[Rfam]
Shown here is a 305-nucleotide RNA sequence from Brassica rapa, a member of the family "Plant signal recognition particle RNA". Taxonomically the source falls in Brassica (Eukaryota, Mesangiospermae, rosids, malvids). It scores 202 bits against the family's covariance model. The base pairs follow the family's consensus structure, which is taken from published work. Gene Ontology terms of the family: signal recognition particle, endoplasmic reticulum targeting and SRP-dependent cotranslational protein targeting to membrane, signal sequence recognition.
Nucleotides: 305
Stems, first nucleotide, its partner, number of pairs: 001040003004023005028037001030035001043305011056292002058289003061284001064281003067277002071273002074270003077262002080259005087253003097248008106236002109234002112231002115227009124163018164169001172217005183208002190201003
Number, partner (000 for none) and nucleotide at each position: 001040g002039u003038c004023g005022a006021g007020c008019u009000a010000c011000g012000u013000a014000a015000c016000g017000a018000g019008a020007g021006c022005u023004u024000g025000u026000g027000a028037c029000a030035c031000g032000a033000u034000u035030g036000g037028g038003g039002a040001c041000a042000a043305u044304a045303a046302g047301a048300u049299g050298g051297u052296g053295g054000a055000a056292c057291a058289c059288u060287g061284g062000u063000u064281u065280g066279g067277u068276c069000c070000a071273c072272g073000g074270g075269u076268c077262g078261g079000u080259u081258c082257u083256g084255g085000u086000u087253u088252g089251g090000c091000a092000u093000g094000u095000u096000u097248c098247u099246g100245a101244g102243c103242u104241g105000c106236c107235c108000a109234g110233u111000c112231c113230a114000a115227g116226c117225u118224g119223a120222g121221a122220g123219u124163u125162a126161u127160c128159u129158g130157u131156c132155u133154g134153g135152u136151u137150u138149g139148a140147g141146c142000a143000a144000a145000g146141g147140c148139u149138c150137a151136a152135g153134u154133c155132a156131g157130g158129u159128g160127g161126g162125u163124g164169c165000u166000a167000a168000a169164g170000u171000u172217g173216g174215a175214g176213g177000g178000u179000a180000a181000u182000g183208c184207g185000u186000c187000a188000g189000g190201c191200u192199g193000g194000u195000u196000u197000u198000a199192c200191a201190g202000a203000g204000c205000a206000u207184u208183g209000a210000c211000u212000a213176c214175u215174u216173c217172c218000c219123g220122c221121u222120u223119u224118c225117a226116g227115c228000a229000g230113u231112g232000u233110a234109c235107g236106g237000a238000u239000a240000a241104c242103g243102g244101c245100u246099c247098a248097g249000c250000a251089u252088c253087a254000c255084u256083c257082a258081g259080a260000c261078c262077c263000a264000c265000u266000a267000u268076g269075g270074c271000g272072u273071g274000c275000u276068g277067g278000u279066u280065c281064g282000u283000u284061c285000u286000u287060c288059a289058g290000c291057u292056g293000g294000a295053c296052c297051a298050c299049c300048a301047u302046u303045u304044u305043a